[Rfam]
RNA sequence: UUGAGGGUGACUGCGAAUCUAAAGGAAGUCGGCCGCAAAUAUGGGGGCUUACGAACAGAAACUGUAUGUGAGGCGGAUUUAGUUCGGGUGAUGUUGCCUAACAAACAGAAACCCAAUACUGCACAGGGACUAUUACGUAGAUACAGGGACCACCCAUCUGUCCGUAGU
Numbered sequence: 001u002u003g004a005g006g007g008u009g010a011c012u013g014c015g016a017a018u019c020u021a022a023a024g025g026a027a028g029u030c031g032g033c034c035g036c037a038a039a040u041a042u043g044g045g046g047g048c049u050u051a052c053g054a055a056c057a058g059a060a061a062c063u064g065u066a067u068g069u070g071a072g073g074c075g076g077a078u079u080u081a082g083u084u085c086g087g088g089u090g091a092u093g094u095u096g097c098c099u100a101a102c103a104a105a106c107a108g109a110a111a112c113c114c115a116a117u118a119c120u121g122c123a124c125a126g127g128g129a130c131u132a133u134u135a136c137g138u139a140g141a142u143a144c145a146g147g148g149a150c151c152a153c154c155c156a157u158c159u160g161u162c163c164g165u166a167g168u
Stems, first nucleotide, its partner, number of pairs: 001016003005012002032168001035165002041157005046151002049148002062146006073138003077134001080132005086114004092107004